[Rfam]
RNA sequence: AGUGUGUGAGGAAGGGAUGGAGUGUUCUUUCGACCAAUCGAUUGGUCGAAAUGUUGAAACUUAUUUUUCCAUAUAUA
Numbered sequence: 001a002g003u004g005u006g007u008g009a010g011g012a013a014g015g016g017a018u019g020g021a022g023u024g025u026u027c028u029u030u031c032g033a034c035c036a037a038u039c040g041a042u043u044g045g046u047c048g049a050a051a052u053g054u055u056g057a058a059a060c061u062u063a064u065u066u067u068u069c070c071a072u073a074u075a076u077a
Stems, first nucleotide, its partner, number of pairs: 003077004008069001010028004015023001030057005038049003
Dot-bracket structure: ..((((.(.((((.(.......).)))).(((((...(((......)))...)))))...........)....))))